[Rfam]
Rfam assigns this 187-nucleotide RNA from Odobenus rosmarus to the family "Interferon gamma 5' UTR regulatory element". Rfam's curators write: This family represents a pseudoknot containing stem-loop structure found in the 5' UTR of interferon (IFN) gamma mRNA. This structure is thought to be involved in translational regulation and the pseudoknot has been found to activate PKR which is known to be a translational inhibitor. Mutations in the pseudoknot structure have been found to reduce PKR activation and increase the translation of IFN-gamma. The source organism's lineage runs through Eukaryota, Deuterostomia, Vertebrata, Mammalia and Odobenus rosmarus. Its family is annotated with positive regulation of translation in the Gene Ontology. It is annotated as a cis-regulatory element.
RNA sequence: CAUUUUUCUGAUUGUCUGUAGGUCGGCUAUUAGAAAAGAAAGAUCAGCCAAGUCGUCUGGACCUGAUCAACUUAACCUUAACCUCUGGAUCUGAUCAACUUAAGCUACUGAUUUCAACUACUUCCGGCCUAACUACGAAACAAUGAAUUACACAGGCUAUAUCUUAGCUUUUCAGCUUUGCGUGAUU
Numbered sequence: 001c002a003u004u005u006u007u008c009u010g011a012u013u014g015u016c017u018g019u020a021g022g023u024c025g026g027c028u029a030u031u032a033g034a035a036a037a038g039a040a041a042g043a044u045c046a047g048c049c050a051a052g053u054c055g056u057c058u059g060g061a062c063c064u065g066a067u068c069a070a071c072u073u074a075a076c077c078u079u080a081a082c083c084u085c086u087g088g089a090u091c092u093g094a095u096c097a098a099c100u101u102a103a104g105c106u107a108c109u110g111a112u113u114u115c116a117a118c119u120a121c122u123u124c125c126g127g128c129c130u131a132a133c134u135a136c137g138a139a140a141c142a143a144u145g146a147a148u149u150a151c152a153c154a155g156g157c158u159a160u161a162u163c164u165u166a167g168c169u170u171u172u173c174a175g176c177u178u179u180g181c182g183u184g185a186u187u
Base pairs, nucleotide, nucleotide: 009069010068011067012066013065014064015138016137018136019135022134025129026128027127028126032122033121035119041114042113043112044111045110046109047108051106052105053104056102059099139187140186143183144182145181149161150160152158166177167176168175169174
Dot-bracket structure: ........[[[[[[((.((..(..((((...((.(.....(((((((...(((..(..(....]]]]]].............................)..).))).)))))))....).))...))))....)))))((..(((...((.(.....).))....((((....))))...)))..))